[Rfam]
RNA sequence: CUCUGGAGAGAGCGUAAGCCACCAAAGGGGUAACGGCGCGACGAGCGGCCCUAAACUCUCAGGUACCCAGGACAGAG
Numbered sequence: 001c002u003c004u005g006g007a008g009a010g011a012g013c014g015u016a017a018g019c020c021a022c023c024a025a026a027g028g029g030g031u032a033a034c035g036g037c038g039c040g041a042c043g044a045g046c047g048g049c050c051c052u053a054a055a056c057u058c059u060c061a062g063g064u065a066c067c068c069a070g071g072a073c074a075g076a077g
Stems, first nucleotide, its partner, number of pairs: 001077005012019002021064003025059001028058003035051002
Dot-bracket structure: (((((......((....)).(((.(..(((....((.............))....))))..)))........)))))